A member of the RNA family "Purine riboswitch aptamer" from Clostridium saccharobutylicum, 102 nucleotides long. The family is grouped with related families in Rfam's "Purine riboswitches".
[Rfam]
Nucleotides: 102
Base pairs, nucleotide, nucleotide: 018088020086021085022084023083024082025081029049030048032046034044035043058078059077060076061075062074063073
Number, partner (000 for none) and nucleotide at each position: 001000a002000c003000c004000a005000c006000a007000a008000a009000u010000a011000a012000u013000a014000c015000a016000c017000a018088a019000a020086c021085u022084c023083g024082u025081a026000u027000a028000u029049u030048u031000c032046c033000a034044a035043a036000u037000g038000u039000a040000u041000g042000g043035u044034u045000g046032g047000a048030a049029a050000g051000u052000u053000u054000c055000u056000a057000c058078c059077u060076g061075c062074u063073a064000u065000c066000c067000g068000u069000a070000u071000a072000u073063u074062a075061g076060c077059a078058g079000a080000c081025u082024a083023u084022g085021a086020g087000g088018u089000a090000a091000c092000u093000u094000u095000u096000a097000u098000g099000a100000u101000g102000a